[Rfam]
RNA: Makes More Granules Regulator RNA (mmgR)
Organism: Rhodopseudomonas sp.
RNA sequence: CGCGGCUGCCCUGCUUGGGGCGUUUCCUCCCUUGACUUGGCCCGGGCCGCUGAAGCGACCGGGCCGUUUUCUUGUCGGGA
Numbered sequence: 001c002g003c004g005g006c007u008g009c010c011c012u013g014c015u016u017g018g019g020g021c022g023u024u025u026c027c028u029c030c031c032u033u034g035a036c037u038u039g040g041c042c043c044g045g046g047c048c049g050c051u052g053a054a055g056c057g058a059c060c061g062g063g064c065c066g067u068u069u070u071c072u073u074g075u076c077g078g079g080a
Base pairs, nucleotide, nucleotide: 008021009020010019011018039065040064041063042062043061044060045059047057
Dot-bracket structure: .......((((......)))).................(((((((.(.........).)))))))...............